[Rfam]
RNA sequence: UCCGGGGGAAGCUCACCGCCGAGGCCACCCACGGGGUGUGCGUCACCCAUGCCCCGCCUCGGGGAAGGUCUGAGAGAAGGGCCGCCCGCGGCUCCAGCAGAGCCCCGCCCGCGACGGGGGCGGGUGAGCCACCAGCAAGGGGGGGCGCCGCGUCAUCACUUUAAUGGGCUGGUCCAUGGGCAGGAGAAGCCGAGGGAGGUUUCCUGCGGGAACCCCGGCGGAUGCCUGCGGCCCCGCGGUGCUUUGAGACAGACUCACGGCCAGCGAUUGAGUCCAAUGGGUGAGGUGGGGCAUUACCCUACAACCCAAUUCAGACUACUCUCCCCUGGA
Numbered sequence: 001u002c003c004g005g006g007g008g009a010a011g012c013u014c015a016c017c018g019c020c021g022a023g024g025c026c027a028c029c030c031a032c033g034g035g036g037u038g039u040g041c042g043u044c045a046c047c048c049a050u051g052c053c054c055c056g057c058c059u060c061g062g063g064g065a066a067g068g069u070c071u072g073a074g075a076g077a078a079g080g081g082c083c084g085c086c087c088g089c090g091g092c093u094c095c096a097g098c099a100g101a102g103c104c105c106c107g108c109c110c111g112c113g114a115c116g117g118g119g120g121c122g123g124g125u126g127a128g129c130c131a132c133c134a135g136c137a138a139g140g141g142g143g144g145g146c147g148c149c150g151c152g153u154c155a156u157c158a159c160u161u162u163a164a165u166g167g168g169c170u171g172g173u174c175c176a177u178g179g180g181c182a183g184g185a186g187a188a189g190c191c192g193a194g195g196g197a198g199g200u201u202u203c204c205u206g207c208g209g210g211a212a213c214c215c216c217g218g219c220g221g222a223u224g225c226c227u228g229c230g231g232c233c234c235c236g237c238g239g240u241g242c243u244u245u246g247a248g249a250c251a252g253a254c255u256c257a258c259g260g261c262c263a264g265c266g267a268u269u270g271a272g273u274c275c276a277a278u279g280g281g282u283g284a285g286g287u288g289g290g291g292c293a294u295u296a297c298c299c300u301a302c303a304a305c306c307c308a309a310u311u312c313a314g315a316c317u318a319c320u321c322u323c324c325c326c327u328g329g330a
Base pairs, nucleotide, nucleotide: 001330002329003328004327007324008323009322012285013284014283015282016281017280020061021060022059023058024057034048035047036046037045038044070314071313072312073311074310080262081261082260083259090104091103092102093101094100105123106122107121108120109119110118124258125257126256127255128254130252144243145242146241147240148239149238150237151236152235286302287301288300289299290298291297
Dot-bracket structure: ((((..(((..((((((..(((((.........(((((.....)))))........)))))........[[[[[.....((((......(((((.....)))))((((((.......))))))(((((.(.............(((((((((..................................................................................)))))))))........).))))))))).................))))))((((((.....)))))).......]]]]].......)))..))))

Rfam assigns this 330-nucleotide RNA from Dromas ardeola to the family "Nuclear RNase P". The family is grouped with related families in Rfam's "RNaseP clan". Taxonomically the source falls in Dromas (Eukaryota, Eumetazoa, Sarcopterygii, Dromadidae). Its family is annotated with ribonuclease P complex, ribonuclease P activity and tRNA processing in the Gene Ontology.